[Rfam]
RNA sequence: GAGUCCGUGCUGCCUAAUCCGUUGCGGAGUGCACGGAGCCGGGGACCCAUUUCCCCCUGGGGCGAAUCGGUGUCCCCACACCGUAGGGCGGCUUCCACGCCCGAGCCCGUCAGCUAACCCGGUCGGCCACGUGGAAGGACAGU
Number, nucleotide and partner (000 for none) at each position: 001g000002a000003g000004u000005c000006c000007g000008u000009g000010c000011u000012g127013c126014c125015u000016a000017a000018u037019c036020c035021g034022u033023u000024g000025c000026g000027g000028a000029g000030u000031g000032c000033a022034c021035g020036g019037a018038g123039c122040c121041g120042g119043g118044g000045a000046c000047c000048c059049a058050u000051u000052u000053c000054c000055c000056c000057c000058u049059g048060g108061g107062g106063c000064g000065a000066a000067u000068c083069g082070g081071u080072g000073u000074c000075c000076c000077c000078a000079c000080a071081c070082c069083g068084u000085a000086g102087g101088g100089c099090g000091g000092c000093u000094u000095c000096c000097a000098c000099g089100c088101c087102c086103g000104a000105g000106c062107c061108c060109g000110u000111c000112a000113g000114c000115u000116a000117a000118c043119c042120c041121g040122g039123u038124c000125g014126g013127c012128c000129a000130c000131g000132u000133g000134g000135a000136a000137g000138g000139a000140c000141a000142g000143u000
c-di-AMP riboswitch aptamer (ydaO/yuaA leader): a 143-nucleotide sequence from Nonomuraea dietziae. Its family is annotated with regulation of gene expression and cyclic-di-AMP binding in the Gene Ontology. From the family's description: This family represents a conserved RNA structure found upstream of the ydaO and yuaA genes in Bacillus subtilis and related genes in other bacteria. The organism belongs to Nonomuraea, within Bacteria.